[Rfam]
RNA sequence: CCUGUUCGGCAACUGCCACAGGUCGGGAUGUGAUUGACACACCACUCGAGUCCCGAGAACUGACUCGAGUGGGCGUGAAAAUUGAACCAGAAA
Numbered sequence: 001c002c003u004g005u006u007c008g009g010c011a012a013c014u015g016c017c018a019c020a021g022g023u024c025g026g027g028a029u030g031u032g033a034u035u036g037a038c039a040c041a042c043c044a045c046u047c048g049a050g051u052c053c054c055g056a057g058a059a060c061u062g063a064c065u066c067g068a069g070u071g072g073g074c075g076u077g078a079a080a081a082u083u084g085a086a087c088c089a090g091a092a093a
Stems, first nucleotide, its partner, number of pairs: 001022005025088002032083004

This 93-nucleotide RNA sequence belongs to the Rfam family "eL15-Euryarchaeota ribosomal protein leader". It is annotated as a cis-regulatory leader. It is one of the family's seed sequences.